[Rfam]
RNA sequence: AUCUUUGCGCAGUGGCAGUAUCAUAGCCUGUGAGGUUGAGCUGAGGCAUGAUCUUUGCUAGUUGAAAACUUUUCCCAAUACCCUGCUCUAGCAGCUUGCAAUAUAGCUGUGGUGGGCAAUUUUUGGCAGCCUCUGUAGAGG
Number, nucleotide and partner (000 for none) at each position: 001a000002u000003c000004u000005u000006u000007g000008c000009g000010c000011a000012g000013u000014g000015g000016c000017a000018g000019u000020a052021u051022c050023a049024u048025a000026g047027c046028c045029u000030g000031u000032g000033a000034g042035g041036u040037u000038g000039a000040g036041c035042u034043g000044a000045g028046g027047c026048a024049u023050g022051a021052u020053c000054u000055u000056u000057g000058c000059u000060a000061g000062u000063u000064g000065a000066a000067a000068a000069c000070u000071u000072u000073u000074c000075c000076c000077a000078a000079u000080a000081c000082c000083c000084u000085g117086c116087u115088c000089u112090a000091g110092c109093a108094g107095c106096u105097u000098g000099c000100a000101a000102u000103a000104u000105a096106g095107c094108u093109g092110u091111g000112g089113u000114g000115g087116g086117c085118a000119a000120u000121u000122u000123u000124u000125g000126g000127c000128a000129g000130c141131c140132u139133c138134u000135g000136u000137a000138g133139a132140g131141g130
Rfam assigns this 141-nucleotide RNA from Alligator sinensis to the family "U4 spliceosomal RNA". Pairs were carried over by alignment from the consensus structure, which is taken from published work. U4 small nuclear RNA (U4 snRNA) is a component of the major U2-dependent spliceosome. The family's RNA type in Rfam is spliceosomal small nuclear RNA.